[Rfam]
RNA sequence: UUGCAGGACGUUUUGACUAGUAGACUGUUUUGUCCCUCUCCAACAAAGAACAAUUUGUUCUUUGACAGAGAGGGACAAGACGGUUUAUUGGUUGAAGCGUGUUGUGGC
Numbered sequence: 001u002u003g004c005a006g007g008a009c010g011u012u013u014u015g016a017c018u019a020g021u022a023g024a025c026u027g028u029u030u031u032g033u034c035c036c037u038c039u040c041c042a043a044c045a046a047a048g049a050a051c052a053a054u055u056u057g058u059u060c061u062u063u064g065a066c067a068g069a070g071a072g073g074g075a076c077a078a079g080a081c082g083g084u085u086u087a088u089u090g091g092u093u094g095a096a097g098c099g100u101g102u103u104g105u106g107g108c
Base pairs, nucleotide, nucleotide: 001107002106003105004104005103006102011097012096013095014094015093016092017091018090019089020088021087022086023085024084025083026082027081028080029069030068031067032066033065034064049059050058051057052056
RNA: mir-8517 microRNA precursor family